[Rfam]
RNA sequence: UUGAAGCUCCAUCUACAAAUGGAUAAGACUUUGGUCUUAGUGUAGACGAGUUUUAAAAAUUGAAAGUAAGGGAGCAAUAACCAACCUCUUGUUCUAUCAAGAGGGCAUUAUUGCUCCCU
Numbered sequence: 001u002u003g004a005a006g007c008u009c010c011a012u013c014u015a016c017a018a019a020u021g022g023a024u025a026a027g028a029c030u031u032u033g034g035u036c037u038u039a040g041u042g043u044a045g046a047c048g049a050g051u052u053u054u055a056a057a058a059a060u061u062g063a064a065a066g067u068a069a070g071g072g073a074g075c076a077a078u079a080a081c082c083a084a085c086c087u088c089u090u091g092u093u094c095u096a097u098c099a100a101g102a103g104g105g106c107a108u109u110a111u112u113g114c115u116c117c118c119u
Stems, first nucleotide, its partner, number of pairs: 008023005069119012086103005
Rfam assigns this 119-nucleotide RNA sequence from Diospyros glaucifolia to the family "Plastid-psbA-1 3UTR RNA".
The family's consensus secondary structure was predicted with LocARNA.
On this family, see Richter et al., Plant Commun 2023: "Retrograde signaling in plants: A critical review focusing on the GUN pathway and beyond".
It is annotated as a cis-regulatory element.
The organism belongs to Diospyros, within Eukaryota.